Description
Shown here is a 97-nucleotide RNA sequence from Enterococcus italicus, a member of the family "Purine riboswitch aptamer". The source organism's lineage runs through Bacteria, Bacillati, Bacilli, Enterococcus and Enterococcus italicus. It scores 66 bits against the family's covariance model.

Nucleotides: 097
Stems, first nucleotide, its partner, number of pairs: 018083008030045004055073006
Number, partner (000 for none) and nucleotide at each position: 001000u002000u003000u004000u005000u006000c007000a008000u009000a010000a011000u012000u013000a014000g015000a016000g017000u018083u019082a020081c021080u022079u023078a024077u025076a026000u027000a028000u029000c030045g031044u032043c033042g034000u035000a036000a037000u038000u039000g040000g041000u042033c043032g044031a045030c046000a047000g048000u049000u050000u051000c052000u053000a054000c055073c056072u057071g058070a059069u060068a061000c062000c063000g064000c065000a066000a067000a068060u069059a070058u071057c072056g073055g074000a075000c076025u077024a078023u079022a080021a081020g082019u083018a084000a085000a086000a087000a088000a089000g090000g091000c092000u093000u094000u095000u096000u097000u